[Rfam]
RNA sequence: CGCCGUUCCUAGGGGUGUCCUGAGGCGCGGUUCAUCGACCCUUCAAGCGGUGUCACACACGUGGCAUAGGUGCGGGGAGAUCGGAAUAGCUUCUGACGGGCUGAGAGUUUGCGCACGCGGUGCGCGAUAACCCUUUGAACCUGAUCCGGGUCAUGCCGGCGAAGGGAAGGACGAUUGCCACUGC
Number, nucleotide and partner (000 for none) at each position: 001c000002g000003c000004c000005g000006u000007u171008c170009c169010u168011a134012g133013g132014g131015g000016u000017g101018u100019c099020c098021u000022g000023a000024g000025g000026c000027g000028c000029g000030g000031u000032u000033c000034a000035u000036c000037g000038a000039c000040c000041c000042u000043u000044c000045a000046a000047g000048c000049g000050g000051u000052g000053u000054c000055a000056c000057a000058c000059a000060c000061g000062u000063g000064g000065c000066a000067u000068a000069g000070g000071u000072g000073c000074g000075g000076g000077g000078a000079g000080a000081u000082c000083g000084g000085a000086a000087u000088a000089g000090c000091u000092u000093c000094u000095g000096a000097c000098g020099g019100g018101c017102u000103g000104a000105g000106a000107g000108u000109u127110u126111g125112c124113g123114c122115a121116c120117g000118c000119g000120g116121u115122g114123c113124g112125c111126g110127a109128u000129a000130a000131c014132c013133c012134u011135u000136u000137g000138a000139a000140c165141c164142u163143g000144a000145u000146c159147c158148g157149g156150g000151u000152c000153a000154u000155g000156c149157c148158g147159g146160c000161g000162a000163a142164g141165g140166g000167a000168a010169g009170g008171a007172c000173g000174a000175u000176u000177g000178c000179c000180a000181c000182u000183g000184c000
RNA: TPP riboswitch aptamer (THI element)